This 108-nucleotide RNA from Acidovorax carolinensis belongs to the Rfam family "Glycine riboswitch aptamer". It scores 45 bits against the family's covariance model.

Nucleotides: 108
Stems, first nucleotide, its partner, number of pairs: 009100005020054004056088003059084002063082003068076002
Number, partner (000 for none) and nucleotide at each position: 001000u002000c003000g004000u005000g006000c007000c008000c009100g010099u011098c012097a013096g014000g015000a016000g017000a018000g019000a020054g021053u022052g023051c024000c025000c026000c027000g028000u029000c030000c031000c032000u033000u034000g035000c036000a037000a038000g039000a040000g041000a042000g043000g044000a045000u046000g047000c048000g049000c050000g051023g052022c053021a054020c055000c056088g057087c058086c059084g060083a061000a062000g063082g064081c065080g066000c067000a068076g069075g070000a071000a072000c073000a074000c075069c076068c077000g078000a079000a080065c081064g082063c083060u084059c085000a086058g087057g088056c089000a090000a091000a092000a093000g094000g095000a096013c097012u098011g099010g100009c101000a102000a103000c104000c105000g106000c107000c108000c